[Rfam]
RNA sequence: AGGGCCACGGGAUCGACCGCGCGGGUGACGACCAGAUAGUCGCGAAUUGCGAUGCCGUGCCGGUUCUC
Numbered sequence: 001a002g003g004g005c006c007a008c009g010g011g012a013u014c015g016a017c018c019g020c021g022c023g024g025g026u027g028a029c030g031a032c033c034a035g036a037u038a039g040u041c042g043c044g045a046a047u048u049g050c051g052a053u054g055c056c057g058u059g060c061c062g063g064u065u066c067u068c
Stems, first nucleotide, its partner, number of pairs: 005062001008059002013028001016026003035056001037054002040052005
This 68-nucleotide RNA from Nocardia cerradoensis belongs to the Rfam family "ASdes TB sRNA". The family has 26 seed sequences and 1,192 matches in Rfam 15.1. Taxonomically the source falls in Nocardia (Bacteria, Bacillati, Actinomycetota, Nocardiaceae).